[Rfam]
RNA sequence: GGGAGCAGCUGGUGACUGGUGUCGCCCCUGGUCUUCAAAACCAGUGGGGGGCGGAAAGACCGUCCCCGGUGGGUUCGAUUCCCACAUGCUCCC
Numbered sequence: 001g002g003g004a005g006c007a008g009c010u011g012g013u014g015a016c017u018g019g020u021g022u023c024g025c026c027c028c029u030g031g032u033c034u035u036c037a038a039a040a041c042c043a044g045u046g047g048g049g050g051g052c053g054g055a056a057a058g059a060c061c062g063u064c065c066c067c068g069g070u071g072g073g074u075u076c077g078a079u080u081c082c083c084a085c086a087u088g089c090u091c092c093c
Base pairs, nucleotide, nucleotide: 001093002092003091004090005089006088007087008085011026012025013024014023015022016021028044029043030042031041032040047067048066049065050064051063070084071083072082073081